[Rfam]
RNA: MIR7502 microRNA precursor family
Organism: Gossypium schwendimanii
RNA sequence: UGUUAAAAAUUCCAUCAAUUUUUAAUGUUAAAAACUAGUCCCUAUACGUCAUCAUGAGGUACACGUGACAUGCCAUGUGUAACUGUCUAGUUAUUUCAUCAAUCAUACUAGUUUUUAACCAGUAAAAAUGGAUGAAACUUUUAAUC
Dot-bracket structure: .(((((((.((.((((.(((((((.(.((((((...............................................................................))))))..).))))))).)))).)).))))))).
Numbered sequence: 001u002g003u004u005a006a007a008a009a010u011u012c013c014a015u016c017a018a019u020u021u022u023u024a025a026u027g028u029u030a031a032a033a034a035c036u037a038g039u040c041c042c043u044a045u046a047c048g049u050c051a052u053c054a055u056g057a058g059g060u061a062c063a064c065g066u067g068a069c070a071u072g073c074c075a076u077g078u079g080u081a082a083c084u085g086u087c088u089a090g091u092u093a094u095u096u097c098a099u100c101a102a103u104c105a106u107a108c109u110a111g112u113u114u115u116u117a118a119c120c121a122g123u124a125a126a127a128a129u130g131g132a133u134g135a136a137a138c139u140u141u142u143a144a145u146c
Stems, first nucleotide, its partner, number of pairs: 002145007010137002013134004018129007026121001028118006